[Rfam]
RNA sequence: CCUUUGGAGUGUUAUAACAAACGAAAGUAGCUUUAUAGCAAAAUCGGACACGUUGAAUAAGGAA
Number, nucleotide and partner (000 for none) at each position: 001c062002c061003u060004u059005u000006g000007g000008a000009g051010u050011g049012u048013u047014a000015u000016a000017a000018c000019a000020a000021a000022c046023g045024a044025a000026a000027g000028u000029a000030g039031c038032u037033u000034u000035a000036u000037a032038g031039c030040a000041a000042a000043a000044u024045c023046g022047g013048a012049c011050a010051c009052g000053u000054u000055g000056a000057a000058u000059a004060a003061g002062g001063a000064a000